cspA thermoregulator: a 429-nucleotide sequence from Wenzhouxiangella sp. AB-CW3.
Taxonomically the source falls in Wenzhouxiangella (Bacteria, Pseudomonadati, Gammaproteobacteria, Chromatiales).
Gene Ontology terms of the family: response to temperature stimulus and regulation of translation.
The literature on the family includes a 2010 paper in Mol Cell by Giuliodori et al., "The cspA mRNA is a thermosensor that modulates translation of the cold-shock protein CspA".
The base pairs follow the family's consensus structure, which is taken from published work.
[Rfam]
RNA sequence: GACGCUGCGGAACACAGCAGUGGUCGAAUUUGAUCGAAGUUCCCUUCCGGUACCCCCUUCAAGCUCCUCCAUUUCCUGAAUUUCCGAGUAACAGCAACACCGGACCCGGCCGUGUGGCAUGGUCCAUUACAAACUUGCAAUACAUUUAAAGGUAGACAUCAAUAUGUCCAGCAAUACCGGAACCGUGAAGUGGUUCAACGACGCGAAGGGCUUCGGCUUCAUUUCCCAGGACGAUGGCGGCAGUGACGUCUUUGUCCACUUCAGCGCCCUGACCGGCUCGGGCUUCAAGUCCCUGGCCGAAGGUGCGAAGGUGAGCUUCGACAUCGUCAACGGCCCCAAGGGCCAGCAGGCAGAGAACGUCGUCACCCUCUAACAGGGGCGACAGACCGCAUUGCCGCGAAAAACCCCGCCGCCGGCGGGGUUUUUCAU
Dot-bracket structure: ...((((.(...).))))...((........((....((((((((.....(.(..(.((.(.(((....(((.(........((.(..(.............................(................).............)..).)).....).))).((.(.....).))...........)))).)).)..).).))))....))))))....)).....(((((........((.....))...(((((...(((((.(.((((...(..........).)))))....)).))).)))))........))))).....((.((....)))).(.((...((........))...)).)..(((.(..(.....)..).))).....((((((((((((...))))))))))))...